[Rfam]
RNA sequence: AUCGUGAACGCGGGAGAGGCCAGGUGAAAUGAUCCUGGCGCCGAAGGAGCAACCGCCCCGGAAACUCUCAGGCAAAAGGACCGCGGCACAAAC
Number, nucleotide and partner (000 for none) at each position: 001a000002u000003c000004g000005u000006g000007a000008a000009c085010g084011c083012g082013g081014g000015a000016g000017a000018g000019g000020c038021c037022a036023g035024g000025u000026g000027a000028a000029a000030u000031g000032a000033u000034c000035c023036u022037g021038g020039c000040g073041c072042c071043g069044a068045a000046g000047g067048a066049g065050c000051a000052a000053c061054c060055g000056c000057c000058c000059c000060g054061g053062a000063a000064a000065c049066u048067c047068u044069c043070a000071g042072g041073c040074a000075a000076a000077a000078g000079g000080a000081c013082c012083g011084c010085g009086g000087c000088a000089c000090a000091a000092a000093c000